[Rfam]
This 116-nucleotide sequence from Calyptomena viridis belongs to the Rfam family "Small nucleolar RNA SNORD90".
The family has 18 seed sequences and 545 matches in Rfam 15.1.
snoRNA HBII-295 belongs to the family of C/D snoRNAs.
RNA sequence: UUAAUUCUCUUUUUGGUGUCUUAUGAUGAAGCUGCAUAGGGCAGAUUCUGAGUUGAGAAAGAAAAUUUCUCUCCACUGAUUCUCUCUAUAUGCUAUCUGAAGACACUGUAUUAUUG
Numbered sequence: 001u002u003a004a005u006u007c008u009c010u011u012u013u014u015g016g017u018g019u020c021u022u023a024u025g026a027u028g029a030a031g032c033u034g035c036a037u038a039g040g041g042c043a044g045a046u047u048c049u050g051a052g053u054u055g056a057g058a059a060a061g062a063a064a065a066u067u068u069c070u071c072u073c074c075a076c077u078g079a080u081u082c083u084c085u086c087u088a089u090a091u092g093c094u095a096u097c098u099g100a101a102g103a104c105a106c107u108g109u110a111u112u113a114u115u116g
Stems, first nucleotide, its partner, number of pairs: 014108008031096001034093004039085003044080001047079002050076001052074001055071006